[Rfam]
RNA sequence: CCACAUGGGGUUCCGGGGUAAUUUAAACUCUGGAUUCUCUCAUCUUCAGAGUUUGAUUACCCUGGAUCUUUAUGUGG
Numbered sequence: 001c002c003a004c005a006u007g008g009g010g011u012u013c014c015g016g017g018g019u020a021a022u023u024u025a026a027a028c029u030c031u032g033g034a035u036u037c038u039c040u041c042a043u044c045u046u047c048a049g050a051g052u053u054u055g056a057u058u059a060c061c062c063u064g065g066a067u068c069u070u071u072a073u074g075u076g077g
Stems, first nucleotide, its partner, number of pairs: 001077002004074004009069002012066006019059004024055010
Dot-bracket structure: ((.((((.((.((((((.((((.((((((((((............)))))))))))))).)))))).)).)))).))
This 77-nucleotide RNA sequence from Branchiostoma belcheri belongs to the Rfam family "mir-4872 microRNA precursor family". Lineage of the source: Eukaryota > Opisthokonta > Chordata > Cephalochordata > Branchiostoma. The base pairs follow the family's consensus structure, which was predicted with RNAalifold. Gene Ontology terms of the family: miRNA-mediated post-transcriptional gene silencing and RISC complex.